[Rfam]
RNA sequence: ACAUAUAGCGAGCUUGUGCGUGAAUCUAACACCAUCUUUUUCAAUAAUCUGAGUGGCUCCAGAUUCGUAAUUAACGAUAUUGUAGCAAUGCAACGGUGAUUUGAUGGGGUUGGAUUCACGCAGAAGCUUGUUAUAUGUCC
Dot-bracket structure: (((.(((...(((((.((((((((((.(((.((.........(.(.................................................).)........)).))).)))))))))).)))))...))).)))..
This 140-nucleotide sequence from Nelumbo nucifera belongs to the Rfam family "MIR403 microRNA precursor family".
The literature on the family includes a 2009 paper in BMC Genomics by Mica et al., "High throughput approaches reveal splicing of primary microRNA transcripts and tissue specific expression of mature microRNAs in Vitis vinifera".
NCBI's taxonomy places the organism under Eukaryota, Streptophyta, Streptophytina, Spermatophyta, Nelumbo.